[Rfam]
Rfam assigns this 125-nucleotide RNA sequence from Chara braunii to the family "U5 spliceosomal RNA". On this family, see Zwieb, Nucleic Acids Res 1997: "The uRNA database". The organism belongs to Chara, within Eukaryota. It scores 42 bits against the family's covariance model. The family's consensus secondary structure is taken from published work.

RNA sequence: AGCUGCGUGUCCAGCUCAUAUGGCGUACUAUUUUUUCCCUCCCCUUAUAUACUAAAGAAUACGGUGGGCUGAGCACACUGGGCAGCGUACAACAAGUUUUGACGGCCCUUCGCUCCGUCGAAGGG
Numbered sequence: 001a002g003c004u005g006c007g008u009g010u011c012c013a014g015c016u017c018a019u020a021u022g023g024c025g026u027a028c029u030a031u032u033u034u035u036u037c038c039c040u041c042c043c044c045u046u047a048u049a050u051a052c053u054a055a056a057g058a059a060u061a062c063g064g065u066g067g068g069c070u071g072a073g074c075a076c077a078c079u080g081g082g083c084a085g086c087g088u089a090c091a092a093c094a095a096g097u098u099u100u101g102a103c104g105g106c107c108c109u110u111c112g113c114u115c116c117g118u119c120g121a122a123g124g125g
Base pairs, nucleotide, nucleotide: 003085004084005083006082008075009074010073012071013070014069015068016067017066018065029061030060031059032058033057034056035055036054106125107124108123109122110121